Notes: Bacterial large signal recognition particle RNA: a 263-nucleotide sequence from Thermosipho atlanticus. The family's RNA type in Rfam is non-coding RNA gene. A search with the family's covariance model found it, with a score of 181 bits. Clan: SRP clan. The source organism's lineage runs through Bacteria, Thermotogota, Thermotogae, Thermotogales and Thermosipho atlanticus.
RNA sequence: CCGUGCUAAGCGGGGGGUUGGUGGUCCCCUGAACCCGAAAUCCACCUAGCGGGGCUGAAAUCCUCUGCCGAGGUCGUCAAGGUCUGAAAACGACCUUUGGUGGGGUGUUGAAGGCUGGGUCCUACGCAACAACUACCUGCGAACCGGGUCAGGUCCGGAAGGAAGCAGCCCUAAGCAGGCAAGUGUGUGCCGUAGGGGUGCCCAGCUGGAGCCUUUACCAAAGGAACGCUCAGGUCUUGAUUGAUCGAAGCAGGGGUGCACGG
Numbered sequence: 001c002c003g004u005g006c007u008a009a010g011c012g013g014g015g016g017g018u019u020g021g022u023g024g025u026c027c028c029c030u031g032a033a034c035c036c037g038a039a040a041u042c043c044a045c046c047u048a049g050c051g052g053g054g055c056u057g058a059a060a061u062c063c064u065c066u067g068c069c070g071a072g073g074u075c076g077u078c079a080a081g082g083u084c085u086g087a088a089a090a091c092g093a094c095c096u097u098u099g100g101u102g103g104g105g106u107g108u109u110g111a112a113g114g115c116u117g118g119g120u121c122c123u124a125c126g127c128a129a130c131a132a133c134u135a136c137c138u139g140c141g142a143a144c145c146g147g148g149u150c151a152g153g154u155c156c157g158g159a160a161g162g163a164a165g166c167a168g169c170c171c172u173a174a175g176c177a178g179g180c181a182a183g184u185g186u187g188u189g190c191c192g193u194a195g196g197g198g199u200g201c202c203c204a205g206c207u208g209g210a211g212c213c214u215u216u217a218c219c220a221a222a223g224g225a226a227c228g229c230u231c232a233g234g235u236c237u238u239g240a241u242u243g244a245u246c247g248a249a250g251c252a253g254g255g256g257u258g259c260a261c262g263g
Base pairs, nucleotide, nucleotide: 001263002262003261004260005259006258009056010055011054012030013029014028015027016026017025018024019023034053035052036051037050062256063255064254065253066252067251068250072246073245074244075243076242078239079238080237081236082235083234084233085232086231087230091228092227094224095223096222097221098220099219102216103215104213105212106211113207114206115205116204117203118202119201120200121196122195123194124193125192126191127187128186130185131184136179137178138177139176140175146171147170148169149168154163155162156161
On this family, see Rosenblad et al., Nucleic Acids Res 2003: "SRPDB: Signal Recognition Particle Database".
The base pairs follow the family's consensus structure, which is taken from published work.